Shown here is a 431-nucleotide sequence from Anaerobacterium chartisolvens, a member of the family "Bacterial RNase P class A". It is annotated as a ribozyme.

RNA sequence: UGAGUAAGCCAGAUGAUCGCGGGUGCAGUGCCGAAAGGCCGCACACGAGGAAAGUCCGGGCUCCACAGGGCGAAGGUGCCGGGUAAUUCCCGGUGAAGGCGACUUCAAGGAAAGUGCAACAGAGAGAUACCGCAUACCAGAUACUAGAAACCAGAUACCAGAUACCAGAAUAUCAGAAACGCUUCGAAGCAUUUCUAGUCUCUAGUUUCUAGUUUCUAGUAUCUGGUAUGUAAGGGUGGAAAGGUGAGGUAAGAGCUCACCAGCGGCAUGGCGACUUGCCGGUCUAUGUAAACCCCACCUGGAGCAACACCGCAGAGGGACAUUUUGGCGGCCCGCCAGUCCCGGGUAGGUGGCUUGAGCAUUACAGAAAUGUAUUGCCUAGACAGAUGAUCAUCAAAUACAGAACCCGGCUUAUACGACUUACUCAUAUU
Numbered sequence: 001u002g003a004g005u006a007a008g009c010c011a012g013a014u015g016a017u018c019g020c021g022g023g024u025g026c027a028g029u030g031c032c033g034a035a036a037g038g039c040c041g042c043a044c045a046c047g048a049g050g051a052a053a054g055u056c057c058g059g060g061c062u063c064c065a066c067a068g069g070g071c072g073a074a075g076g077u078g079c080c081g082g083g084u085a086a087u088u089c090c091c092g093g094u095g096a097a098g099g100c101g102a103c104u105u106c107a108a109g110g111a112a113a114g115u116g117c118a119a120c121a122g123a124g125a126g127a128u129a130c131c132g133c134a135u136a137c138c139a140g141a142u143a144c145u146a147g148a149a150a151c152c153a154g155a156u157a158c159c160a161g162a163u164a165c166c167a168g169a170a171u172a173u174c175a176g177a178a179a180c181g182c183u184u185c186g187a188a189g190c191a192u193u194u195c196u197a198g199u200c201u202c203u204a205g206u207u208u209c210u211a212g213u214u215u216c217u218a219g220u221a222u223c224u225g226g227u228a229u230g231u232a233a234g235g236g237u238g239g240a241a242a243g244g245u246g247a248g249g250u251a252a253g254a255g256c257u258c259a260c261c262a263g264c265g266g267c268a269u270g271g272c273g274a275c276u277u278g279c280c281g282g283u284c285u286a287u288g289u290a291a292a293c294c295c296c297a298c299c300u301g302g303a304g305c306a307a308c309a310c311c312g313c314a315g316a317g318g319g320a321c322a323u324u325u326u327g328g329c330g331g332c333c334c335g336c337c338a339g340u341c342c343c344g345g346g347u348a349g350g351u352g353g354c355u356u357g358a359g360c361a362u363u364a365c366a367g368a369a370a371u372g373u374a375u376u377g378c379c380u381a382g383a384c385a386g387a388u389g390a391u392c393a394u395c396a397a398a399u400a401c402a403g404a405a406c407c408c409g410g411c412u413u414a415u416a417c418g419a420c421u422u423a424c425u426c427a428u429a430u431u
Stems, first nucleotide, its partner, number of pairs: 001427008010418001011415001012395007020047002023044004028039001052413003056410005061304004069334002074300005079093005094108001095106004109295002114293002116289003130235002132231020243261006263284001264282001266279003270275001308352004317343005327337003359378003363374004
The source organism's lineage runs through Bacteria, Bacillati, Clostridia, Eubacteriales and Anaerobacterium. Rfam links the family to the GO terms tRNA processing, ribonuclease P activity and dimeric ribonuclease P complex.